[Rfam]
Rfam assigns this 77-nucleotide RNA sequence from Crocodylus porosus to the family "Mammalian CPEB3 ribozyme". From the family's description: The mammalian CPEB3 ribozyme is a self cleaving RNA located in the second intron of the CPEB3 gene which belongs to a family of genes regulating messenger RNA polyadenylation. This ribozyme is highly conserved and found only in mammals. The CPEB3 ribozyme is structurally and biochemically related to the human hepatitis delta virus (HDV) ribozyme and the HDV ribozyme is proposed to have arisen from the human transcriptome. There is currently only one other known self cleaving ribozyme in mammals, the CoTC motif. It scores 36 bits against the family's covariance model. The family's consensus secondary structure is taken from published work.
RNA sequence: AGAGGUCAUGUUUCAGGCCAUAGCAGAAGUGCUCAUGGUGUAGCCUCUGAGAUUACAAUGAAUCUGUGAAUUUUGCU
Numbered sequence: 001a002g003a004g005g006u007c008a009u010g011u012u013u014c015a016g017g018c019c020a021u022a023g024c025a026g027a028a029g030u031g032c033u034c035a036u037g038g039u040g041u042a043g044c045c046u047c048u049g050a051g052a053u054u055a056c057a058a059u060g061a062a063u064c065u066g067u068g069a070a071u072u073u074u075g076c077u
Stems, first nucleotide, its partner, number of pairs: 016045003022077007029041003050065005